[Rfam]
RNA sequence: CAACUCAAGGAGCGUUGCAGCGAAACCCGGUUUCGUCAGGCUUGAGUAACCGCAGGCCCCGCAGCCUGCCUUUGCAACGGCGCUCACCUUUA
Numbered sequence: 001c002a003a004c005u006c007a008a009g010g011a012g013c014g015u016u017g018c019a020g021c022g023a024a025a026c027c028c029g030g031u032u033u034c035g036u037c038a039g040g041c042u043u044g045a046g047u048a049a050c051c052g053c054a055g056g057c058c059c060c061g062c063a064g065c066c067u068g069c070c071u072u073u074g075c076a077a078c079g080g081c082g083c084u085c086a087c088c089u090u091u092a
Base pairs, nucleotide, nucleotide: 003047004046005045006044007043008042021035022034023033024032025031026030
A member of the RNA family "SAH (S-adenosyl-L-homocysteine) riboswitch aptamer" from Polaromonas sp. A23, 92 nucleotides long. Gene Ontology terms of the family: regulation of gene expression and S-adenosylhomocysteine metabolic process. The match comes from Rfam's covariance-model search (56 bits). Lineage of the source: Bacteria > Pseudomonadati > Burkholderiales > Comamonadaceae > Polaromonas.